RAGATH-9 RNA: a 157-nucleotide RNA.
RNA sequence: CCAAUCAACCCAAAAGAACUGUAAAUAAUUCCAGAGCCCUAAUAUGUGUCAAACAUAACGGUCAUACAACGACAAUCUAUAACUCUAUAGAUAAAGUGAGAGAAGGAUGAGGGAUAUCUAUGAAAUAAGAUGUACAAAUACAUAGAACAGUUCUUUA
Numbered sequence: 001c002c003a004a005u006c007a008a009c010c011c012a013a014a015a016g017a018a019c020u021g022u023a024a025a026u027a028a029u030u031c032c033a034g035a036g037c038c039c040u041a042a043u044a045u046g047u048g049u050c051a052a053a054c055a056u057a058a059c060g061g062u063c064a065u066a067c068a069a070c071g072a073c074a075a076u077c078u079a080u081a082a083c084u085c086u087a088u089a090g091a092u093a094a095a096g097u098g099a100g101a102g103a104a105g106g107a108u109g110a111g112g113g114a115u116a117u118c119u120a121u122g123a124a125a126u127a128a129g130a131u132g133u134a135c136a137a138a139u140a141c142a143u144a145g146a147a148c149a150g151u152u153c154u155u156u157a
Stems, first nucleotide, its partner, number of pairs: 013156009030114003043057005061073003075092007117146006

For this family Rfam cites "New classes of self-cleaving ribozymes revealed by comparative genomics analysis" (Weinberg et al., Nat Chem Biol, 2015).